A member of the RNA family "pemK RNA", 58 nucleotides long.
Rfam's curators put it in the seed alignment.
RNA sequence: AUAAUGAUACUCCUGUAAGCAGCUCGAAGAGUUCCUUCGAGGGGUGCGAUUCCCGUGC
Numbered sequence: 001a002u003a004a005u006g007a008u009a010c011u012c013c014u015g016u017a018a019g020c021a022g023c024u025c026g027a028a029g030a031g032u033u034c035c036u037u038c039g040a041g042g043g044g045u046g047c048g049a050u051u052c053c054c055g056u057g058c
Base pairs, nucleotide, nucleotide: 012055013022014021015020023041024040025039027037028036029035042054043053044052